Mammalian CPEB3 ribozyme: a 76-nucleotide RNA from Alligator sinensis. Pairs were carried over by alignment from the consensus structure, which is taken from published work. Its family is annotated with RNA nuclease activity in the Gene Ontology.
RNA sequence: GUCGCAAGUUCGAGGCAACAGCAGGAGCGCUCAUGGUACGGCCUGUCAGAUUCCAAUGAAAUCUGUGAAUUCUGCU
Numbered sequence: 001g002u003c004g005c006a007a008g009u010u011c012g013a014g015g016c017a018a019c020a021g022c023a024g025g026a027g028c029g030c031u032c033a034u035g036g037u038a039c040g041g042c043c044u045g046u047c048a049g050a051u052u053c054c055a056a057u058g059a060a061a062u063c064u065g066u067g068a069a070u071u072c073u074g075c076u
Stems, first nucleotide, its partner, number of pairs: 014043003020076007027039001029037001047065006